U1 spliceosomal RNA: a 161-nucleotide RNA sequence from Papaver somniferum.
Clan: U1 clan.
The organism belongs to Papaver, within Eukaryota.
Rfam classes the family as a spliceosomal small nuclear RNA.
U1 is a small nuclear RNA (snRNA) component of the spliceosome (involved in pre-mRNA splicing). Its 5' end forms complementary base pairs with the 5' splice junction, thus defining the 5' donor site of an intron.
RNA sequence: AUACUUACCUGGACGGGGUGAAUGACUGAUCAUGAAGGGUCCUGGCCUAGGUAAGUGGCUUCCAUUGCACUUUGGAAGGGUGCUCGCCUAAGAUCUGUCCUACGGGGCCGAGUCUACGUCGUAAUUUUUUCCUCAGGGGGUGUGCGUCCGCGCUGCCCCUG
Numbered sequence: 001a002u003a004c005u006u007a008c009c010u011g012g013a014c015g016g017g018g019u020g021a022a023u024g025a026c027u028g029a030u031c032a033u034g035a036a037g038g039g040u041c042c043u044g045g046c047c048u049a050g051g052u053a054a055g056u057g058g059c060u061u062c063c064a065u066u067g068c069a070c071u072u073u074g075g076a077a078g079g080g081u082g083c084u085c086g087c088c089u090a091a092g093a094u095c096u097g098u099c100c101u102a103c104g105g106g107g108c109c110g111a112g113u114c115u116a117c118g119u120c121g122u123a124a125u126u127u128u129u130u131c132c133u134c135a136g137g138g139g140g141u142g143u144g145c146g147u148c149c150g151c152g153c154u155g156c157c158c159c160u161g
Stems, first nucleotide, its partner, number of pairs: 012120004016048004021043001024041004049089003055083003059079003062075002091115003094111002098107002136160005144153003